[Rfam]
RNA sequence: CGGACACCAUAGUCCGUUGGGAUGUGGUCCUUCGGGACUGAACCGUAAG
Numbered sequence: 001c002g003g004a005c006a007c008c009a010u011a012g013u014c015c016g017u018u019g020g021g022a023u024g025u026g027g028u029c030c031u032u033c034g035g036g037a038c039u040g041a042a043c044c045g046u047a048a049g
Base pairs, nucleotide, nucleotide: 001016002015003014004013005012018045019044020043026039027038028037029036030035
Dot-bracket structure: (((((......))))).(((.....(((((....)))))...)))....
The family of this 49-nucleotide RNA is "eL15-Euryarchaeota ribosomal protein leader". It is one of the family's seed sequences. For this family Rfam cites "Discovery of 20 novel ribosomal leader candidates in bacteria and archaea" (Eckert and Weinberg, BMC Microbiol, 2020). By type it is a cis-regulatory leader.